[Rfam]
This 69-nucleotide RNA sequence from Halomicrobium zhouii belongs to the Rfam family "eL15-Euryarchaeota ribosomal protein leader". The literature on the family includes a 2020 paper in BMC Microbiol by Eckert and Weinberg, "Discovery of 20 novel ribosomal leader candidates in bacteria and archaea".
RNA sequence: CCUGUCUGUACAGGUCGGGAUGUGAGCCGCGAGCGGUCGAGUCGACCGCGGCGUGGCUUGAACCACGCA
Numbered sequence: 001c002c003u004g005u006c007u008g009u010a011c012a013g014g015u016c017g018g019g020a021u022g023u024g025a026g027c028c029g030c031g032a033g034c035g036g037u038c039g040a041g042u043c044g045a046c047c048g049c050g051g052c053g054u055g056g057c058u059u060g061a062a063c064c065a066c067g068c069a
Stems, first nucleotide, its partner, number of pairs: 001014005017064002024059008
Lineage of the source: Archaea > Methanobacteriota > Halobacteria > Halobacteriales > Halomicrobium.